RNA: T-box leader
RNA sequence: AAAAAUAUAACGACGGAGACAUACUUAGUCGUGUGAAUUUAAAGAGAGCUGAUGGUUGGUGUAAAUCAGCAAUUCAACGGUUAAUGUUCCACUCCCGAAUAGAUAUGCUGAAUUUUAUAGUAGGCUUAUCCGAAUCAUACACGUUACGUAUAUGCGGAGGUUGUACUAAUUACUGUACAACAAAUUAGGGUGGUACCACGAAGGAAUGUUAACAAUAGCCUUUCGUCCCUUAC
Numbered sequence: 001a002a003a004a005a006u007a008u009a010a011c012g013a014c015g016g017a018g019a020c021a022u023a024c025u026u027a028g029u030c031g032u033g034u035g036a037a038u039u040u041a042a043a044g045a046g047a048g049c050u051g052a053u054g055g056u057u058g059g060u061g062u063a064a065a066u067c068a069g070c071a072a073u074u075c076a077a078c079g080g081u082u083a084a085u086g087u088u089c090c091a092c093u094c095c096c097g098a099a100u101a102g103a104u105a106u107g108c109u110g111a112a113u114u115u116u117a118u119a120g121u122a123g124g125c126u127u128a129u130c131c132g133a134a135u136c137a138u139a140c141a142c143g144u145u146a147c148g149u150a151u152a153u154g155c156g157g158a159g160g161u162u163g164u165a166c167u168a169a170u171u172a173c174u175g176u177a178c179a180a181c182a183a184a185u186u187a188g189g190g191u192g193g194u195a196c197c198a199c200g201a202a203g204g205a206a207u208g209u210u211a212a213c214a215a216u217a218g219c220c221u222u223u224c225g226u227c228c229c230u231u232a233c
Base pairs, nucleotide, nucleotide: 007100008099015095016094017093018092025084026083027082028081029080037073038072039071048070049069050068051067052066053065103129104128105127107125108124109123131143132142160181161180162179163178164177165176166175187230188229189228190227198226199225200224201223202222203221204220